A member of the RNA family "Eukaryotic small subunit ribosomal RNA" from Ceratonova shasta, 598 nucleotides of a longer RNA. Lineage of the source: Eukaryota > Opisthokonta > Metazoa > Myxozoa > Ceratonova. Gene Ontology terms of the family: ribosome and structural constituent of ribosome.

[Rfam]
RNA sequence: ACCUGGUUGAUCCUGCCAGUGGUCAUAUGCUCGUCUCAAAGAUUAAGCCAUGCAUGUCUAAGUUCAUAUCAUUUAAAUGAUGAAACUGCGAAGCGCUCAGUAAAUCAGUUAUCGUCUGUUCGAUCGAUACAUGCCAUGGAUAACUGUGGCAAACCUAGAGCUAAUACAUGCAAAAUUCUUUGUUUCGGCAAAGAAGCAUUUAUCCAGCUAAACCAAUCGGGCCUUAAAACCCAGUAGGUGAAUCUAGAUAACUGUGCCGAUCGUUGCUUUAUGCGGCGAUAUUUCGAUUGAGUUUCUGCCCUAUCAACUUGUUGGUAUGGUAUUGGCCUACCAAGGUUUUGACGGGUAACGGGGAAUCAGGGUUCGAUUCCGGAGAGGGAGCCUGAGAAACGGCUACCACUUCUAAGGAAGGCAGCAGGCGCGCAAAUUACCCAAUCCAGACAUUGGGAGGUAGUGACGAGAAAUACCGGACUGGAUCUUACGAUCCAGUACUGGAAUGAACGAUAUGUAAUCAUUUCGAUGAGGAUCUACUGGAGGGCAAGUCUGGUGCCAGCAGCCGCGGUAAUUCCAGCUCCAGUAGUGUAUAUCAACAUUGUUG
Numbered sequence: 001a002c003c004u005g006g007u008u009g010a011u012c013c014u015g016c017c018a019g020u021g022g023u024c025a026u027a028u029g030c031u032c033g034u035c036u037c038a039a040a041g042a043u044u045a046a047g048c049c050a051u052g053c054a055u056g057u058c059u060a061a062g063u064u065c066a067u068a069u070c071a072u073u074u075a076a077a078u079g080a081u082g083a084a085a086c087u088g089c090g091a092a093g094c095g096c097u098c099a100g101u102a103a104a105u106c107a108g109u110u111a112u113c114g115u116c117u118g119u120u121c122g123a124u125c126g127a128u129a130c131a132u133g134c135c136a137u138g139g140a141u142a143a144c145u146g147u148g149g150c151a152a153a154c155c156u157a158g159a160g161c162u163a164a165u166a167c168a169u170g171c172a173a174a175a176u177u178c179u180u181u182g183u184u185u186c187g188g189c190a191a192a193g194a195a196g197c198a199u200u201u202a203u204c205c206a207g208c209u210a211a212a213c214c215a216a217u218c219g220g221g222c223c224u225u226a227a228a229a230c231c232c233a234g235u236a237g238g239u240g241a242a243u244c245u246a247g248a249u250a251a252c253u254g255u256g257c258c259g260a261u262c263g264u265u266g267c268u269u270u271a272u273g274c275g276g277c278g279a280u281a282u283u284u285c286g287a288u289u290g291a292g293u294u295u296c297u298g299c300c301c302u303a304u305c306a307a308c309u310u311g312u313u314g315g316u317a318u319g320g321u322a323u324u325g326g327c328c329u330a331c332c333a334a335g336g337u338u339u340u341g342a343c344g345g346g347u348a349a350c351g352g353g354g355a356a357u358c359a360g361g362g363u364u365c366g367a368u369u370c371c372g373g374a375g376a377g378g379g380a381g382c383c384u385g386a387g388a389a390a391c392g393g394c395u396a397c398c399a400c401u402u403c404u405a406a407g408g409a410a411g412g413c414a415g416c417a418g419g420c421g422c423g424c425a426a427a428u429u430a431c432c433c434a435a436u437c438c439a440g441a442c443a444u445u446g447g448g449a450g451g452u453a454g455u456g457a458c459g460a461g462a463a464a465u466a467c468c469g470g471a472c473u474g475g476a477u478c479u480u481a482c483g484a485u486c487c488a489g490u491a492c493u494g495g496a497a498u499g500a501a502c503g504a505u506a507u508g509u510a511a512u513c514a515u516u517u518c519g520a521u522g523a524g525g526a527u528c529u530a531c532u533g534g535a536g537g538g539c540a541a542g543u544c545u546g547g548u549g550c551c552a553g554c555a556g557c558c559g560c561g562g563u564a565a566u567u568c569c570a571g572c573u574c575c576a577g578u579a580g581u582g583u584a585u586a587u588c589a590a591c592a593u594u595g596u597u598g
Stems, first nucleotide, its partner, number of pairs: 003019005021588003025585007034462004040455001041422001047420003051417003056089002061087003068081002096375003106298003111293002115291002121286003135170004144160002147157003176195005183188001200251005214238001221230001261279007300346003307337003312334006319327001350372004354365004377398002380395003400411004428453001430452003436448005468494003471490008501521001503518001506516001531577006544571004553560002
Dot-bracket structure: ..(((((.......))))).(((.(((((((..((((..((.....(((.(((..((...(((....((..........))...)))))......(((.......(((..((..((....(((...........((((.....((.(((.....))).))......)))).....(((((..(....)..)))))....(((((.........(......(........).......)........))))).........(((((((.....)))))))....)))...))))..))).(((....(((..((((((.(.......).)))))))))......)))...((((((((....))))...))))))).((.(((..........))).)).((((....))))...)))))).).....(.(((...(((((...))))).)))).)...)))).....(((((((((((....)))))))).)))......(.(..(.........).)..).........((((((.......((((.....((....)).......)))))))))).))))))))))..........